[Rfam]
RNA sequence: ACGACCUUACUUGAACAGGAUCUGUUCUAUAGGCUCGUACUACUGUGUCCUUGAUUUCUAAGGAGACAGGAACAUAAGUCUGGUGGAUGAAUCAUGACCGUGUGAUCAGAGCGUGAUUAACGGUCCAGAUGAUCUGCAUGUUGUGGUCAUCAUCCAAGCUGUAGAUGAUCGUUCUCAGUUGGUGCCUACCAACUGGGGUGGUCACACGGUGUUCUGACAGACU
Numbered sequence: 001a002c003g004a005c006c007u008u009a010c011u012u013g014a015a016c017a018g019g020a021u022c023u024g025u026u027c028u029a030u031a032g033g034c035u036c037g038u039a040c041u042a043c044u045g046u047g048u049c050c051u052u053g054a055u056u057u058c059u060a061a062g063g064a065g066a067c068a069g070g071a072a073c074a075u076a077a078g079u080c081u082g083g084u085g086g087a088u089g090a091a092u093c094a095u096g097a098c099c100g101u102g103u104g105a106u107c108a109g110a111g112c113g114u115g116a117u118u119a120a121c122g123g124u125c126c127a128g129a130u131g132a133u134c135u136g137c138a139u140g141u142u143g144u145g146g147u148c149a150u151c152a153u154c155c156a157a158g159c160u161g162u163a164g165a166u167g168a169u170c171g172u173u174c175u176c177a178g179u180u181g182g183u184g185c186c187u188a189c190c191a192a193c194u195g196g197g198g199u200g201g202u203c204a205c206a207c208g209g210u211g212u213u214c215u216g217a218c219a220g221a222c223u
Stems, first nucleotide, its partner, number of pairs: 001038002003035001005033003013027006043069004048064006078222005097210012110173004120162005128154006175196009

Shown here is a 223-nucleotide RNA from Lathyrus oleraceus, a member of the family "Plant small nucleolar RNA U3". The family has 24 seed sequences and 3,759 matches in Rfam 15.1. A search with the family's covariance model found it, with a score of 192 bits. The base pairs follow the family's consensus structure, which is taken from published work. Rfam links the family to the GO terms nucleolus and RNA processing. By type it is a C/D-box small nucleolar RNA. Small nucleolar RNAs (snoRNAs) are involved in the processing and modification of rRNA in the nucleolus. The source organism's lineage runs through Eukaryota, Streptophyta, Streptophytina, Mesangiospermae and Lathyrus.